[Rfam]
RNA sequence: CCGCUCUGAAAAGCGAUCCUCAAGGGCUGUGGCCCCGGGAUCCGCCGACGGUGAAAACCGCGCACCGGGUGCCAUCCCGGGCCGGUGAAACUCUCAGGCCCAUGACAGAGGGGGA
Numbered sequence: 001c002c003g004c005u006c007u008g009a010a011a012a013g014c015g016a017u018c019c020u021c022a023a024g025g026g027c028u029g030u031g032g033c034c035c036c037g038g039g040a041u042c043c044g045c046c047g048a049c050g051g052u053g054a055a056a057a058c059c060g061c062g063c064a065c066c067g068g069g070u071g072c073c074a075u076c077c078c079g080g081g082c083c084g085g086u087g088a089a090a091c092u093c094u095c096a097g098g099c100c101c102a103u104g105a106c107a108g109a110g111g112g113g114g115a
Base pairs, nucleotide, nucleotide: 001113002112004110005109006108007107008106015042016041017040018039019038020037044099045098046097047095048094051093053091057086058085059084060083